[Rfam]
About this RNA:
The family of this 91-nucleotide sequence from Streptomyces griseoviridis is "sodF sRNA". Pairs were carried over by alignment from the consensus structure. Gene Ontology terms of the family: mRNA binding, negative regulation of translation and regulation of mRNA stability.
RNA sequence: GCGUCCCGCCUCGUGAUCGUCUUCUCACCCUUCACGACGGCGGGCGGCAGAAGGGGGACCCCCGCGAGGACGUGACUCGCGGGGGUCUCCC
Number, nucleotide and partner (000 for none) at each position: 001g000002c046003g045004u000005c044006c043007c042008g041009c040010c039011u000012c000013g035014u034015g033016a032017u000018c000019g029020u000021c000022u000023u000024c000025u000026c000027a000028c000029c019030c000031u000032u016033c015034a014035c013036g000037a000038c000039g010040g009041c008042g007043g006044g005045c003046g002047g000048c000049a000050g000051a000052a000053g091054g090055g089056g088057g087058a086059c085060c084061c083062c082063c081064g080065c079066g078067a077068g076069g000070a000071c000072g000073u000074g000075a000076c068077u067078c066079g065080c064081g063082g062083g061084g060085g059086u058087c057088u056089c055090c054091c053
The family's RNA type in Rfam is small RNA. Taxonomically the source falls in Streptomyces (Bacteria, Actinomycetes, Kitasatosporales, Streptomycetaceae).